The record is a 107-nucleotide RNA sequence from Staphylococcus saprophyticus, which matches "SAM riboswitch aptamer (S box leader)" in Rfam. Lineage of the source: Bacteria > Bacillota > Bacilli > Staphylococcaceae > Staphylococcus saprophyticus. Gene Ontology term of the family: regulation of gene expression.
RNA sequence: CUCUUAUCAAGAGUGGUGGAGGGAUGUGCCCGAUGAAACCCAGCAACCGUCGAUUUUUCGAAAUGGUGCUAAGUCACAAAAAGUUAUUUAACUUUUGGAGAUGAGAG
Numbered sequence: 001c002u003c004u005u006a007u008c009a010a011g012a013g014u015g016g017u018g019g020a021g022g023g024a025u026g027u028g029c030c031c032g033a034u035g036a037a038a039c040c041c042a043g044c045a046a047c048c049g050u051c052g053a054u055u056u057u058u059c060g061a062a063a064u065g066g067u068g069c070u071a072a073g074u075c076a077c078a079a080a081a082a083g084u085u086a087u088u089u090a091a092c093u094u095u096u097g098g099a100g101a102u103g104a105g106a107g
Stems, first nucleotide, its partner, number of pairs: 001107008013041001015040003021031003025078004042070004047066002050061003074099001079096006